[Rfam]
RNA sequence: UCCAUUGUGAAGUGGAAUCUGAAGGAAGUCGGACGCAAACACUCGCACUGACGAACAGAAAUAUCAUACUGAGGCUAUGUAGAAUGGAUGAAUCUGCUAUACAAGAUAAAGUCCGACACUACCCGAGUUCUAUAUAGUAAAUGAUGCGGUGACAUGAGUGGAAAGUGGUUACGCC
Numbered sequence: 001u002c003c004a005u006u007g008u009g010a011a012g013u014g015g016a017a018u019c020u021g022a023a024g025g026a027a028g029u030c031g032g033a034c035g036c037a038a039a040c041a042c043u044c045g046c047a048c049u050g051a052c053g054a055a056c057a058g059a060a061a062u063a064u065c066a067u068a069c070u071g072a073g074g075c076u077a078u079g080u081a082g083a084a085u086g087g088a089u090g091a092a093u094c095u096g097c098u099a100u101a102c103a104a105g106a107u108a109a110a111g112u113c114c115g116a117c118a119c120u121a122c123c124c125g126a127g128u129u130c131u132a133u134a135u136a137g138u139a140a141a142u143g144a145u146g147c148g149g150u151g152a153c154a155u156g157a158g159u160g161g162a163a164a165g166u167g168g169u170u171a172c173g174c175c
Stems, first nucleotide, its partner, number of pairs: 001016006028175001030173002035166002040160006046151005062146006074138003078134007086114004092107004

This 175-nucleotide RNA from Staphylococcus sp. HGB0015 belongs to the Rfam family "Group II catalytic intron D1-D4-3".
The organism belongs to Staphylococcus, within Bacteria.
The pairing is the family consensus, mapped onto this sequence.
The family has 406 seed sequences and 4,274 matches in Rfam 15.1.